[Rfam]
RNA: MIR1120/MIR1122 microRNA precursor family
RNA sequence: CUACACCCCCCGUCCCAUAAUAUAAGAGCGUUUUUUACACUAAUGUAAUGUCAAAAACGCUCUUAUAUUAUGGGACGGAGGGAGUAG
Numbered sequence: 001c002u003a004c005a006c007c008c009c010c011c012g013u014c015c016c017a018u019a020a021u022a023u024a025a026g027a028g029c030g031u032u033u034u035u036u037a038c039a040c041u042a043a044u045g046u047a048a049u050g051u052c053a054a055a056a057a058c059g060c061u062c063u064u065a066u067a068u069u070a071u072g073g074g075a076c077g078g079a080g081g082g083a084g085u086a087g
Stems, first nucleotide, its partner, number of pairs: 003085002007081002010078002013075005019069017037051003041047001